[Rfam]
RNA sequence: GUCGGUUACGGGUAUUCUUGGGUAAAUAAUACAUUGAGUAGUUGUUAUUGCUUGAGAAUACACGUAACUACC
Numbered sequence: 001g002u003c004g005g006u007u008a009c010g011g012g013u014a015u016u017c018u019u020g021g022g023u024a025a026a027u028a029a030u031a032c033a034u035u036g037a038g039u040a041g042u043u044g045u046u047a048u049u050g051c052u053u054g055a056g057a058a059u060a061c062a063c064g065u066a067a068c069u070a071c072c
Stems, first nucleotide, its partner, number of pairs: 001072001004069002008065003012061012025049007032041001